The record is a 65-nucleotide RNA from Neodiprion lecontei, which matches "mir-375 microRNA precursor family" in Rfam.
RNA sequence: AAUUCAUCGAUCCUAACGAUCACAAACUUAGAUUUGAAAGUUUGUUCGUUCGGCUCGAGUUAUUA
Numbered sequence: 001a002a003u004u005c006a007u008c009g010a011u012c013c014u015a016a017c018g019a020u021c022a023c024a025a026a027c028u029u030a031g032a033u034u035u036g037a038a039a040g041u042u043u044g045u046u047c048g049u050u051c052g053g054c055u056c057g058a059g060u061u062a063u064u065a
Stems, first nucleotide, its partner, number of pairs: 001064003005059001008057003012053002017048002022045004027040002
The family has 47 seed sequences and 824 matches in Rfam 15.1.